[Rfam]
RNA sequence: UAGUUGCCAUAACUCCGAGCUUAGUUCAGCUAAGUCUGCUAUAUAUCAAAAAUAUGUCAGAUAAGCUGUCUCGGCCAGUGACUUCGUGUCACAAGGGCAUAGUUAGAAAUGACGUUGCCUCCCGUGUUUGGAAAGGUGUAUCGUGGCGCAACAA
Number, nucleotide and partner (000 for none) at each position: 001u000002a000003g000004u000005u000006g000007c000008c000009a000010u000011a000012a139013c138014u000015c136016c135017g000018a000019g075020c074021u073022u000023a071024g070025u000026u000027c068028a067029g066030c065031u000032a000033a000034g062035u061036c060037u059038g000039c000040u000041a000042u000043a000044u000045a000046u000047c000048a000049a000050a000051a000052a000053u000054a000055u000056g000057u000058c000059a037060g036061a035062u034063a000064a000065g030066c029067u028068g027069u000070c024071u023072c000073g021074g020075c019076c000077a000078g092079u091080g090081a089082c088083u000084u000085c000086g000087u000088g082089u081090c080091a079092c078093a000094a000095g120096g119097g118098c117099a116100u000101a000102g113103u112104u111105a110106g000107a000108a000109a000110u105111g104112a103113c102114g000115u000116u099117g098118c097119c096120u095121c131122c130123c000124g000125u000126g000127u000128u000129u000130g122131g121132a000133a000134a000135g016136g015137u000138g013139u012140a000141u000142c000143g000144u000145g000146g000147c000148g000149c000150a000151a000152c000153a000154a000
Source information
This 154-nucleotide RNA sequence from Vibrio ostreae belongs to the Rfam family "Molybdenum/Tungsten riboswitch aptamer (Moco RNA motif)". NCBI's taxonomy places the organism under Bacteria, Pseudomonadota, Vibrionales, Vibrionaceae, Vibrio. It scores 88 bits against the family's covariance model. The base pairs follow the family's consensus structure, which is taken from published work.